[Rfam]
RNA sequence: AGAAGUCCUAUAGGGGCGACUUGAGAACACACGAACUUUUGUAUUAAUAUGCAAAAUAAGUCUAUCGUGUGAUCUCAUGACGCCCUUAUCGGACAUUU
Numbered sequence: 001a002g003a004a005g006u007c008c009u010a011u012a013g014g015g016g017c018g019a020c021u022u023g024a025g026a027a028c029a030c031a032c033g034a035a036c037u038u039u040u041g042u043a044u045u046a047a048u049a050u051g052c053a054a055a056a057u058a059a060g061u062c063u064a065u066c067g068u069g070u071g072a073u074c075u076c077a078u079g080a081c082g083c084c085c086u087u088a089u090c091g092g093a094c095a096u097u098u
Base pairs, nucleotide, nucleotide: 007092008091011088012087013086014085016083017082018081023076024075025074026073028071029070030069031068032067
The record is a 98-nucleotide sequence from Phtheirospermum japonicum, which matches "MIR398 microRNA precursor family" in Rfam. A reference for the family is Jones-Rhoades and Bartel (2004), "Computational identification of plant microRNAs and their targets, including a stress-induced miRNA", Mol Cell. The family's consensus secondary structure was predicted with WAR.